[Rfam]
RNA sequence: AACCGUCGCCCAAUGGACGUCAAGUUCCCGGGCGGCGGCCAGAUCGUUGGUGGAGUUUACUUGCUGCCGCGCAGGGGCCCACGAUUGGGUGUGCGCGCCACAAGAAAGACAUCCGAGCGAUCCCAGCCCAGAGGUA
Numbered sequence: 001a002a003c004c005g006u007c008g009c010c011c012a013a014u015g016g017a018c019g020u021c022a023a024g025u026u027c028c029c030g031g032g033c034g035g036c037g038g039c040c041a042g043a044u045c046g047u048u049g050g051u052g053g054a055g056u057u058u059a060c061u062u063g064c065u066g067c068c069g070c071g072c073a074g075g076g077g078c079c080c081a082c083g084a085u086u087g088g089g090u091g092u093g094c095g096c097g098c099c100a101c102a103a104g105a106a107a108g109a110c111a112u113c114c115g116a117g118c119g120a121u122c123c124c125a126g127c128c129c130a131g132a133g134g135u136a
Base pairs, nucleotide, nucleotide: 003038004037005036006035007034008033009032010031011030015027016026017025018024042122043121044120045119046118047117048115049114050113052112055110056109057108058107061104062102063101068097069096070095071094072093073092077090078089079088080087
RNA: Hepatitis C alternative reading frame stem-loop
Organism: Orthohepacivirus hominis